[Rfam]
Small nucleolar RNA R30/Z108: a 95-nucleotide RNA from Castanea mollissima.
The match comes from Rfam's covariance-model search (69 bits).
From the family's description: snoR30 is a C/D box small nucleolar RNA which acts as a methylation guide for 18S ribosomal RNA in plants.
Its family is annotated with RNA processing and nucleolus in the Gene Ontology.
The organism belongs to Castanea, within Eukaryota.
Rfam 15.1 lists 626 matches to the family in 219 species.

RNA sequence: GAUGGUUACAAUGAGGAUUCUUAACUCCCUCUUCUGAAUUGUAAGUUUGCUGCUGGCAGAAUCGAACCUAUGACUUUAAAGCCAACACUGAGUAA
Dot-bracket structure: .....((((..................................................................................))))

For this family Rfam cites "Experimental RNomics. Identification of 140 Candidates for Small Non-Messenger RNAs in the Plant Arabidopsis thaliana" (Marker et al., Curr Biol, 2002).